Shown here is a 149-nucleotide RNA sequence from Hibiscus syriacus, a member of the family "MIR396 microRNA precursor family".
The family has 26 seed sequences and 744 matches in Rfam 15.1.
A search with the family's covariance model found it, with a score of 85 bits.
NCBI's taxonomy places the organism under Eukaryota, Viridiplantae, Embryophyta, eudicotyledons, Hibiscus.
The literature on the family includes a 2005 paper in Plant Physiol by Xie et al., "Expression of Arabidopsis MIRNA genes".

RNA sequence: CUUCGUAUUCUUCCACAGCUUUCUUGAACUGCAACAUCGUCUUAGAUCGUUGGUUUUGUUGUCGUUGUUGAUGGUGCAUCCAUCCAUAUCCACCGUAUACGGCGCCCUAUUUGGUUGCGGUUCAAUAAAGCUGUGGGAAGAUACAGACA
Numbered sequence: 001c002u003u004c005g006u007a008u009u010c011u012u013c014c015a016c017a018g019c020u021u022u023c024u025u026g027a028a029c030u031g032c033a034a035c036a037u038c039g040u041c042u043u044a045g046a047u048c049g050u051u052g053g054u055u056u057u058g059u060u061g062u063c064g065u066u067g068u069u070g071a072u073g074g075u076g077c078a079u080c081c082a083u084c085c086a087u088a089u090c091c092a093c094c095g096u097a098u099a100c101g102g103c104g105c106c107c108u109a110u111u112u113g114g115u116u117g118c119g120g121u122u123c124a125a126u127a128a129a130g131c132u133g134u135g136g137g138a139a140g141a142u143a144c145a146g147a148c149a
Stems, first nucleotide, its partner, number of pairs: 003146001005144003013136003017132006024125004029120007